This 85-nucleotide RNA sequence from Drosophila gunungcola belongs to the Rfam family "mir-981 microRNA precursor family".

RNA sequence: CCUCACUGAAGUCGGGUUUCGUUAACAGCGGGCUGUUAUAUCCGUUAGACAAGUUCGUUGUCGACGAAACCUGCAUACUGUGUGG
Numbered sequence: 001c002c003u004c005a006c007u008g009a010a011g012u013c014g015g016g017u018u019u020c021g022u023u024a025a026c027a028g029c030g031g032g033c034u035g036u037u038a039u040a041u042c043c044g045u046u047a048g049a050c051a052a053g054u055u056c057g058u059u060g061u062c063g064a065c066g067a068a069a070c071c072u073g074c075a076u077a078c079u080g081u082g083u084g085g
Stems, first nucleotide, its partner, number of pairs: 001085002004082003013073009030056005
The match comes from Rfam's covariance-model search (80 bits).
On this family, see Legeai et al., BMC Genomics 2010: "Bioinformatic prediction, deep sequencing of microRNAs and expression analysis during phenotypic plasticity in the pea aphid, Acyrthosiphon pisum".